[Rfam]
RNA sequence: UAAGCCUGUUUGUGAAAGCGGGUUGAAUCGGCAGAAGUCAGCAGAAGCCAUAGUACGUAAGAUGUUGCAACAUCCUACGGAAGGGC
Number, nucleotide and partner (000 for none) at each position: 001u025002a024003a000004g023005c022006c021007u020008g019009u018010u017011u016012g000013u000014g000015a000016a011017a010018g009019c008020g007021g006022g005023u004024u002025g001026a000027a000028u000029c000030g000031g000032c000033a000034g000035a000036a000037g000038u045039c044040a000041g000042c000043a000044g039045a038046a000047g086048c085049c084050a000051u000052a000053g000054u000055a000056c079057g078058u077059a076060a000061g074062a073063u072064g000065u000066u000067g000068c000069a000070a000071c000072a063073u062074c061075c000076u059077a058078c057079g056080g000081a000082a000083g000084g049085g048086c047
A member of the RNA family "Group II catalytic intron D1-D4-1" from Paenibacillus sp. N3.4, 86 nucleotides long. Group II introns are found in rRNA, tRNA and mRNA of organelles in fungi, plants and protists, and also in mRNA in bacteria. A search with the family's covariance model found it, with a score of 68 bits. Rfam 15.1 lists 2,508 matches to the family in 1,144 species.